[Rfam]
RNA sequence: CAACAAACUAGCUUGACGAAGCGAAAAGCACAAGCCUUAGUGCCUGUUUGUUGUUUUGUUAAUAAGGC
Numbered sequence: 001c002a003a004c005a006a007a008c009u010a011g012c013u014u015g016a017c018g019a020a021g022c023g024a025a026a027a028g029c030a031c032a033a034g035c036c037u038u039a040g041u042g043c044c045u046g047u048u049u050g051u052u053g054u055u056u057u058g059u060u061a062a063u064a065a066g067g068c
Base pairs, nucleotide, nucleotide: 001053002052003051004050005049006048007047008046011022012021013020014019028043029042030041031040034068035067036066037065038064039063
Dot-bracket structure: ((((((((..((((....)))).....((((..[[[[[[))))..)))))))).........]]]]]]
A member of the RNA family "int-alpA RNA", 68 nucleotides long. The base pairs follow the family's consensus structure, which is taken from published work. It is annotated as a small RNA. Rfam describes the family as follows. Acidobacteria (1 example), Planctomycetes (1 example), Proteobacteria. Rfam's curators put it in the seed alignment.